[Rfam]
RNA sequence: ACUUUAGGAAGGCAACCUAAGUCCGCGACGUCCUGUCGCAAUCGAUGCAUGACUAACAUCCUGUUAG
Numbered sequence: 001a002c003u004u005u006a007g008g009a010a011g012g013c014a015a016c017c018u019a020a021g022u023c024c025g026c027g028a029c030g031u032c033c034u035g036u037c038g039c040a041a042u043c044g045a046u047g048c049a050u051g052a053c054u055a056a057c058a059u060c061c062u063g064u065u066a067g
Stems, first nucleotide, its partner, number of pairs: 012048003016044001025039005053067005
Source information: Rfam assigns this 67-nucleotide RNA sequence from Viridibacillus arenosi to the family "Bacillaceae-1 RNA". The family's consensus secondary structure is taken from published work. The family's RNA type in Rfam is small RNA.